RNA sequence: GUCGCCCGGAGCUUGUUUGUGCGAGGCUGCCAAGGGCGCUCGUCGCCCCGUUUCCUCGCGGGAAGGUCUGAGGCACGCAACUAUCGAUUCCCGUGAUGGGAAGCCAUUUAAUUGUGGCGCGGGCCAACAGCAAUGGCUCUGGAACGGUGCUAAUGCAACUCGAUGACCGGAUCCGUGGUUCCGCGAGGGGGAGGCACUGUUUCGGAAUGAGAGGGCUCGUGUUGAGCGCGUACAGCGAGAUUCGCAAGUGUAACCCAAUUCAGACUACUCCCGGUGCGAC
Number, nucleotide and partner (000 for none) at each position: 001g280002u279003c278004g277005c000006c000007c273008g272009g271010a000011g000012c248013u247014u246015g245016u244017u000018u000019g000020u000021g059022c058023g057024a056025g055026g000027c000028u000029g000030c000031c000032a000033a000034g048035g047036g046037c045038g044039c000040u000041c000042g000043u000044c038045g037046c036047c035048c034049c000050g000051u000052u000053u000054c000055c025056u024057c023058g022059c021060g000061g000062g000063a000064a000065g000066g000067u000068c263069u262070g261071a260072g259073g000074c000075a000076c000077g000078c224079a223080a222081c221082u000083a000084u000085c000086g000087a000088u102089u101090c100091c099092c098093g000094u000095g000096a000097u000098g092099g091100g090101a089102a088103g118104c117105c116106a115107u114108u000109u000110a000111a000112u000113u000114g107115u106116g105117g104118c103119g220120c219121g218122g217123g216124c215125c214126a000127a000128c000129a000130g000131c000132a000133a000134u000135g000136g000137c000138u206139c205140u204141g203142g202143a201144a200145c199146g198147g000148u000149g000150c000151u000152a000153a000154u000155g000156c000157a000158a000159c000160u000161c000162g000163a000164u000165g000166a000167c000168c000169g000170g000171a000172u000173c000174c000175g000176u000177g000178g000179u000180u000181c000182c000183g000184c000185g000186a000187g000188g000189g000190g000191g000192a000193g000194g000195c000196a000197c000198u146199g145200u144201u143202u142203c141204g140205g139206a138207a000208u000209g000210a000211g000212a000213g000214g125215g124216c123217u122218c121219g120220u119221g081222u080223u079224g078225a000226g000227c000228g000229c000230g000231u000232a000233c000234a000235g000236c000237g000238a000239g000240a000241u000242u000243c000244g016245c015246a014247a013248g012249u000250g000251u000252a000253a000254c000255c000256c000257a000258a000259u072260u071261c070262a069263g068264a000265c000266u000267a000268c000269u000270c000271c009272c008273g007274g000275u000276g000277c004278g003279a002280c001
This 280-nucleotide RNA from Paragonimus westermani belongs to the Rfam family "Nuclear RNase P". Rfam links the family to the GO terms tRNA processing, ribonuclease P complex and ribonuclease P activity. A search with the family's covariance model found it, with a score of 111 bits. Ribonuclease P (RNase P) is a ubiquitous endoribonuclease, found in archaea, bacteria and eukarya as well as chloroplasts and mitochondria. Its best characterised activity is the generation of mature 5'-ends of tRNAs by cleaving the 5'-leader elements of precursor-tRNAs. Cellular RNase Ps are ribonucleoproteins. RNA from bacterial RNase Ps retains its catalytic activity in the absence of the protein subunit, i.e. it is a ribozyme. Isolated eukaryotic and archaeal RNase P RNA has not been shown to retain its catalytic function, but is still essential for the catalytic activity of the holoenzyme. Although the archaeal and eukaryotic holoenzyme s have a much greater protein content than the bacterial ones, the RNA cores from all the three lineages are homologous -- helices corresponding to P1, P2, P3, P4, and P10/11 are common to all cellular RNase P RNAs. Yet, there is considerable sequence variation, particularly among the eukaryotic RNAs.